[Rfam]
RNA sequence: AUACCCUACGGAGCGCUCAGGUCCGCCGCAACUCCUGGGUCCGUGGGGUCGGCCGGUUCAAGACGGAAUGGAGUGGCCUCCUCCUAUUCCGACUUGGACCGGCCACCUU
Numbered sequence: 001a002u003a004c005c006c007u008a009c010g011g012a013g014c015g016c017u018c019a020g021g022u023c024c025g026c027c028g029c030a031a032c033u034c035c036u037g038g039g040u041c042c043g044u045g046g047g048g049u050c051g052g053c054c055g056g057u058u059c060a061a062g063a064c065g066g067a068a069u070g071g072a073g074u075g076g077c078c079u080c081c082u083c084c085u086a087u088u089c090c091g092a093c094u095u096g097g098a099c100c101g102g103c104c105a106c107c108u109u
Stems, first nucleotide, its partner, number of pairs: 003049008016039006051104011
The record is a 109-nucleotide RNA sequence from Rhodoblastus sp., which matches "EcpR1" in Rfam. The base pairs follow the family's consensus structure, which was predicted with WAR. Rfam classes the family as a small RNA. A reference for the family is Wilms et al. (2012), "Deep sequencing uncovers numerous small RNAs on all four replicons of the plant pathogen Agrobacterium tumefaciens", RNA Biol. Perviously named SmelC291, SmrC10, or Sra33. According to its overproduction phenotype it was renamed Elongated Cell Phenotype RNA1. Induced by stress,EcpR1 negatively regulates cell cycle master regulatory genes dnaA and gcrA at post-transcriptional level by base pairing between its strongly conserved GC-rich loop and the target mRNAs.